[Rfam]
RNA sequence: UGACAGCACUCUGGAGAGACUCGAUUAGAGCGCCGAAGGGGCAAUACAAUGACGUGUUGUUAAAUCUCUCAGGCAAAAGGACAGAGAAGGAACA
Number, nucleotide and partner (000 for none) at each position: 001u000002g000003a000004c000005a000006g000007c000008a000009c086010u085011c084012u083013g082014g000015a000016g000017a000018g000019a000020c030021u029022c028023g000024a000025u000026u000027a000028g022029a021030g020031c000032g074033c073034c072035g070036a069037a000038g000039g068040g067041g066042c000043a000044a000045u000046a060047c059048a058049a057050u056051g055052a000053c000054g000055u051056g050057u049058u048059g047060u046061u000062a000063a000064a000065u000066c041067u040068c039069u036070c035071a000072g034073g033074c032075a000076a000077a000078a000079g000080g000081a000082c013083a012084g011085a010086g009087a000088a000089g000090g000091a000092a000093c000094a000
RNA: Glycine riboswitch aptamer
Organism: Desulfitobacterium hafniense